Annotation: Shown here is a 65-nucleotide sequence from Mucilaginibacter segetis, a member of the family "Fluoride riboswitch aptamer (crcB RNA motif)". The literature on the family includes a 2012 paper in Science by Baker et al., "Widespread genetic switches and toxicity resistance proteins for fluoride". NCBI's taxonomy places the organism under Bacteria, Pseudomonadati, Bacteroidota, Sphingobacteriia, Mucilaginibacter.

[Rfam]
RNA sequence: UGUAUUAAGGGCGAUGGUGUGCCGCCUAUUUGAACCGCUGCAAAGCUGAUGACGCCUACCCAAAU
Numbered sequence: 001u002g003u004a005u006u007a008a009g010g011g012c013g014a015u016g017g018u019g020u021g022c023c024g025c026c027u028a029u030u031u032g033a034a035c036c037g038c039u040g041c042a043a044a045g046c047u048g049a050u051g052a053c054g055c056c057u058a059c060c061c062a063a064a065u
Base pairs, nucleotide, nucleotide: 010026011025012024013023016056017055018054019053020052037046038045039044